The record is an 83-nucleotide RNA from Apis mellifera, which matches "mir-2765 microRNA precursor family" in Rfam. Rfam links the family to the GO terms RISC complex and miRNA-mediated post-transcriptional gene silencing.
[Rfam]
RNA sequence: ACUGUGUCGAGGAUUGGUAACUCCACCACCGUUGGCGGAAUCUAAUAGCCAAUGGGGUACGAGUUUCCUUCUCUCGGCGCGAA
Number, nucleotide and partner (000 for none) at each position: 001a000002c000003u081004g080005u079006g078007u077008c076009g075010a074011g073012g072013a000014u000015u000016g068017g067018u000019a065020a064021c063022u062023c061024c000025a000026c000027c057028a000029c055030c054031g053032u052033u051034g050035g049036c048037g000038g000039a000040a000041u000042c000043u000044a000045a000046u000047a000048g036049c035050c034051a033052a032053u031054g030055g029056g000057g027058u000059a000060c000061g023062a022063g021064u020065u019066u000067c017068c016069u000070u000071c000072u012073c011074u010075c009076g008077g007078c006079g005080c004081g003082a000083a000
Pairs were carried over by alignment from the consensus structure, which was predicted with RNAalifold.